[Rfam]
The family of this 80-nucleotide RNA from Clostridium sp. CAG:413 is "ZMP/ZTP riboswitch aptamer (pfl RNA motif)".

RNA sequence: AUAGCUUUUCGGGACUGACGGAUUAGUGGAGCACCACGUGGACCGAGAAGCCGAAGCUGCCGACCGUCUGGGCAUAUUUA
Dot-bracket structure: ...(((((((((..(.[[[[[....((((....))))..)..)))))))))......((((..]]]]]..))))......
Pairs were carried over by alignment from the consensus structure, which is taken from published work. Its family is annotated with regulation of purine nucleotide biosynthetic process and one-carbon metabolic process in the Gene Ontology. The organism belongs to Clostridium, within Bacteria. A search with the family's covariance model found it, with a score of 63 bits.